[Rfam]
RNA sequence: UCGUGCCUACCCUGUAGAUCCGAAUUUGUCUUCCUUGUAAGACUGACCACAAAUUCGGUUCUAGAGAGGUUUGCACGGU
Number, nucleotide and partner (000 for none) at each position: 001u000002c077003g076004u075005g074006c073007c000008u000009a000010c069011c068012c000013u000014g000015u000016a062017g061018a060019u000020c058021c057022g056023a055024a054025u053026u052027u051028g050029u049030c000031u000032u000033c000034c000035u000036u000037g000038u000039a000040a000041g000042a000043c000044u000045g000046a000047c000048c000049a029050c028051a027052a026053a025054u024055u023056c022057g021058g020059u000060u018061c017062u016063a000064g000065a000066g000067a000068g011069g010070u000071u000072u000073g006074c005075a004076c003077g002078g000079u000
mir-10 microRNA precursor family: a 79-nucleotide sequence from Darwinula stevensoni. Lineage of the source: Eukaryota > Ecdysozoa > Pancrustacea > Ostracoda > Darwinula. The literature on the family includes a 2001 paper in Cell by Ambros, "microRNAs: tiny regulators with great potential". The family's consensus secondary structure was predicted with PFOLD.